Source information
BsrG: a 274-nucleotide RNA sequence from Pontibacillus chungwhensis. Rfam's curators write: bsrE, bsrG and bsrH pair through intermolecular interactions with antisense sRNAs. The organism belongs to Pontibacillus chungwhensis, within Bacteria. Rfam links the family to the GO terms toxin activity and autolysis. For this family Rfam cites "Novel small RNA-encoding genes in the intergenic regions of Bacillus subtilis" (Saito et al., Gene, 2008).
[Rfam]
RNA sequence: AUCUCGUCUCUCUAUAUGACAAGGGUGGUCGGCUAACCCCUAUCCGGAAGGGGGUGAUGCCUAUCGACGCAUAUCAAGUAAUCAUGGUGAUGUUUUCGUUUGGUAUGUUCGUCCUUUCGCUUCUUAGCUUUGUUGUGAAAAUUGUAACAGAGUUAUUAAAGCAUAAAAAAUAGACCUCCCUUCACACGUUUAUGCAGGAGAGGUCUAUUCAUAUGGGCCGAUCCUCUUAAGUAGAGAGAACGUAGAUCAUACGACCACAGUUGCAGCUGUGGUC
Numbered sequence: 001a002u003c004u005c006g007u008c009u010c011u012c013u014a015u016a017u018g019a020c021a022a023g024g025g026u027g028g029u030c031g032g033c034u035a036a037c038c039c040c041u042a043u044c045c046g047g048a049a050g051g052g053g054g055u056g057a058u059g060c061c062u063a064u065c066g067a068c069g070c071a072u073a074u075c076a077a078g079u080a081a082u083c084a085u086g087g088u089g090a091u092g093u094u095u096u097c098g099u100u101u102g103g104u105a106u107g108u109u110c111g112u113c114c115u116u117u118c119g120c121u122u123c124u125u126a127g128c129u130u131u132g133u134u135g136u137g138a139a140a141a142u143u144g145u146a147a148c149a150g151a152g153u154u155a156u157u158a159a160a161g162c163a164u165a166a167a168a169a170a171u172a173g174a175c176c177u178c179c180c181u182u183c184a185c186a187c188g189u190u191u192a193u194g195c196a197g198g199a200g201a202g203g204u205c206u207a208u209u210c211a212u213a214u215g216g217g218c219c220g221a222u223c224c225u226c227u228u229a230a231g232u233a234g235a236g237a238g239a240a241c242g243u244a245g246a247u248c249a250u251a252c253g254a255c256c257a258c259a260g261u262u263g264c265a266g267c268u269g270u271g272g273u274c
Base pairs, nucleotide, nucleotide: 001247002246003245004244005242006241007240009238021182022181023180024179025178027175029173034057036055037054038053039052040051041050065132066131067130069128070127078093079092080091102124103123105121192212193211194210222236224234225233253274254273255272256271257270258269259268260267261266
Description
Rfam classes the family as a small RNA.